This 162-nucleotide RNA from Cognatundibacterium jejuense belongs to the Rfam family "FMN riboswitch aptamer (RFN element)". The organism belongs to Cognatundibacterium, within Bacteria.
RNA sequence: GUACGUCUUCAGGGCGGGGUGUAAUUCCCCACCGGCGGUAAAUCUGAUUUUUCAGACAAGCCCGCGAGCGCUUGGCUUAGCACUUUGAGUGUUUUGGCAAGGUCAGCAGAUCUGGUGUAAUUCCAGGGCCGACGGUGAUAGUCCGGAUGAGAGAAGAUGCGC
Numbered sequence: 001g002u003a004c005g006u007c008u009u010c011a012g013g014g015c016g017g018g019g020u021g022u023a024a025u026u027c028c029c030c031a032c033c034g035g036c037g038g039u040a041a042a043u044c045u046g047a048u049u050u051u052u053c054a055g056a057c058a059a060g061c062c063c064g065c066g067a068g069c070g071c072u073u074g075g076c077u078u079a080g081c082a083c084u085u086u087g088a089g090u091g092u093u094u095u096g097g098c099a100a101g102g103u104c105a106g107c108a109g110a111u112c113u114g115g116u117g118u119a120a121u122u123c124c125a126g127g128g129c130c131g132a133c134g135g136u137g138a139u140a141g142u143c144c145g146g147a148u149g150a151g152a153g154a155a156g157a158u159g160c161g162c
Stems, first nucleotide, its partner, number of pairs: 004159007017029003031142002033131002035065004060129002068107002111127005133145003
Dot-bracket structure: ...(((((((......(((.......))).[[((((((.....................[[))))..((....................................))...(((((.......)))))]])).(((.....]]))).......)))))))...